[Rfam]
A member of the RNA family "FMN riboswitch aptamer (RFN element)" from Aquabacterium olei, 157 nucleotides long.
It scores 101 bits against the family's covariance model.
For this family Rfam cites "Regulation of riboflavin biosynthesis and transport genes in bacteria by transcriptional and translational attenuation" (Vitreschak et al., Nucleic Acids Res, 2002).
The RFN element is a highly conserved domain that is found frequently in the 5'-untranslated regions of prokaryotic mRNAs that encode for flavin mononucleotide (FMN) biosynthesis and transport proteins.
NCBI's taxonomy places the organism under Bacteria, Pseudomonadota, Burkholderiales, Sphaerotilaceae, Aquabacterium.
Pairs were carried over by alignment from the consensus structure, which is taken from published work.
RNA sequence: GAGCGUUCUCAGGGCGGGGCGGAAUUCCCCACCGGCGGUAGGAGGCCUUCGGGCCUCGAGCCCGCGAGCGCCUCGCACUGCUUCGGCAGGGCGAGGGUCAGCAGACCUGGUCAGAUGCCAGGGCCGACGGUCACAGUCCGGAUGAAAGAGAGCGCGA
Numbered sequence: 001g002a003g004c005g006u007u008c009u010c011a012g013g014g015c016g017g018g019g020c021g022g023a024a025u026u027c028c029c030c031a032c033c034g035g036c037g038g039u040a041g042g043a044g045g046c047c048u049u050c051g052g053g054c055c056u057c058g059a060g061c062c063c064g065c066g067a068g069c070g071c072c073u074c075g076c077a078c079u080g081c082u083u084c085g086g087c088a089g090g091g092c093g094a095g096g097g098u099c100a101g102c103a104g105a106c107c108u109g110g111u112c113a114g115a116u117g118c119c120a121g122g123g124c125c126g127a128c129g130g131u132c133a134c135a136g137u138c139c140g141g142a143u144g145a146a147a148g149a150g151a152g153c154g155c156g157a
Stems, first nucleotide, its partner, number of pairs: 003155008017029003031137002033126002035065004060124002068102002106122005128140003